The record is a 129-nucleotide RNA sequence from Austrofundulus limnaeus, which matches "Small nucleolar RNA SNORA55" in Rfam. ACA55 is a member of the H/ACA class of snoRNA that guide the sites of modification of uridines to pseudouridines.
[Rfam]
RNA sequence: GCACCUCAGUACAACCCUGUUGAUUGUUUCUGUUCAACGAGGGUCAGAGUUGGUGCCAUAGAAACUCGAAGUCAAUCCAGAUGGAUCUCCUCUUCUGUUGGAGUCUGUCUCUACAACUUUGAUACAUAA
Numbered sequence: 001g002c003a004c005c006u007c008a009g010u011a012c013a014a015c016c017c018u019g020u021u022g023a024u025u026g027u028u029u030c031u032g033u034u035c036a037a038c039g040a041g042g043g044u045c046a047g048a049g050u051u052g053g054u055g056c057c058a059u060a061g062a063a064a065c066u067c068g069a070a071g072u073c074a075a076u077c078c079a080g081a082u083g084g085a086u087c088u089c090c091u092c093u094u095c096u097g098u099u100g101g102a103g104u105c106u107g108u109c110u111c112u113a114c115a116a117c118u119u120u121g122a123u124a125c126a127u128a129a
Stems, first nucleotide, its partner, number of pairs: 001056005013044001015042002018039002021036002066122006079110008089101002

Rfam links the family to the GO terms RNA processing and nucleolus.